[Rfam]
RNA sequence: CAGUGGACUGGUAGCUGUUGAGCCUGGGGCGGUAGCCUG
Numbered sequence: 001c002a003g004u005g006g007a008c009u010g011g012u013a014g015c016u017g018u019u020g021a022g023c024c025u026g027g028g029g030c031g032g033u034a035g036c037c038u039g
Stems, first nucleotide, its partner, number of pairs: 008026001010024003
Dot-bracket structure: .......(.(((.........))).).............

This 39-nucleotide RNA from Erwinia sp. Leaf53 belongs to the Rfam family "JUMPstart RNA". Rfam 15.1 lists 288 matches to the family in 230 species. The match comes from Rfam's covariance-model search (42 bits). Pairs were carried over by alignment from the consensus structure, which is taken from published work.